A member of the RNA family "msiK RNA" from Streptomyces alboniger, 58 nucleotides long. Lineage of the source: Bacteria > Bacillati > Kitasatosporales > Streptomycetaceae > Streptomyces. Pairs were carried over by alignment from the consensus structure, which is taken from published work.
RNA sequence: ACACCACUCCCUCUACUCGGAUCGUCCGGCACGUUCCUGCCGGUGAAGGGGGCCCUCA
Numbered sequence: 001a002c003a004c005c006a007c008u009c010c011c012u013c014u015a016c017u018c019g020g021a022u023c024g025u026c027c028g029g030c031a032c033g034u035u036c037c038u039g040c041c042g043g044u045g046a047a048g049g050g051g052g053c054c055c056u057c058a
Stems, first nucleotide, its partner, number of pairs: 009050004014045002026043006